[Rfam]
RNA sequence: UCCUUCCUUGUCUAGGGGAGCGGAGUGUGUCAAUGACCGUCUAGUGAGACCACUUUUGCUGAUACCCUUGUAAAAACGCCCGCACCCGCCCAUGGUUUGGCGAGUGCAAUUUUUGGAAGC
Dot-bracket structure: ....(((((.....)))))((((((((.(((......(.....)...))))))).))))......................(((((((..(...)..)))...)))).............
Annotation:
Shown here is a 120-nucleotide RNA sequence from Callosobruchus maculatus, a member of the family "U4atac minor spliceosomal RNA". The family has 61 seed sequences and 1,648 matches in Rfam 15.1. The family's RNA type in Rfam is spliceosomal small nuclear RNA. U4atac is an essential component of the minor U12-type spliceosome complex which is required for removal of the rarer class of eukaryotic introns (AT-AC, U12-type). The organism belongs to Callosobruchus, within Eukaryota. Rfam links the family to the GO terms pre-mRNA 5'-splice site binding, U4atac snRNP and spliceosomal tri-snRNP complex assembly.